[Rfam]
RNA sequence: AGAUGAAUAUGAUGAAAAAAAUAAUGAAAGAUAUCUGAAAAUCAAAUACUUUGUAUUUGAUAUGAUCGAACAAAAUUAUCGCUACGUUCUUUCUGAUUCAUCU
Number, nucleotide and partner (000 for none) at each position: 001a000002g000003a000004u100005g099006a098007a097008u000009a000010u000011g000012a000013u000014g000015a000016a000017a000018a000019a000020a000021a000022u000023a000024a000025u000026g000027a000028a000029a000030g000031a000032u000033a000034u000035c000036u000037g000038a000039a000040a000041a000042u000043c000044a000045a000046a000047u000048a000049c000050u000051u000052u000053g000054u000055a000056u000057u000058u000059g000060a000061u000062a000063u000064g000065a000066u000067c000068g000069a000070a000071c000072a000073a000074a000075a000076u000077u000078a000079u000080c000081g000082c000083u000084a000085c000086g000087u000088u000089c000090u000091u000092u000093c000094u000095g000096a000097u007098u006099c005100a004101u000102c000103u000
RNA: Small nucleolar RNA R32/R81/Z41
Organism: Medicago truncatula